The record is an 85-nucleotide RNA sequence from Actinomadura logoneensis, which matches "ZMP/ZTP riboswitch aptamer (pfl RNA motif)" in Rfam. The family's consensus secondary structure is taken from published work.
[Rfam]
RNA sequence: GGCCGGACGCGACUGGCGCAGUCAAGGUGGAUUCGACCACCGGGGAGCGAAGACGGUCCGGACACCGCGCGCCUGGGUGGACGGA
Numbered sequence: 001g002g003c004c005g006g007a008c009g010c011g012a013c014u015g016g017c018g019c020a021g022u023c024a025a026g027g028u029g030g031a032u033u034c035g036a037c038c039a040c041c042g043g044g045g046a047g048c049g050a051a052g053a054c055g056g057u058c059c060g061g062a063c064a065c066c067g068c069g070c071g072c073c074u075g076g077g078u079g080g081a082c083g084g085a
Stems, first nucleotide, its partner, number of pairs: 003056003008049003013044002015073005027040004063079004
NCBI's taxonomy places the organism under Bacteria, Actinomycetota, Streptosporangiales, Thermomonosporaceae, Actinomadura.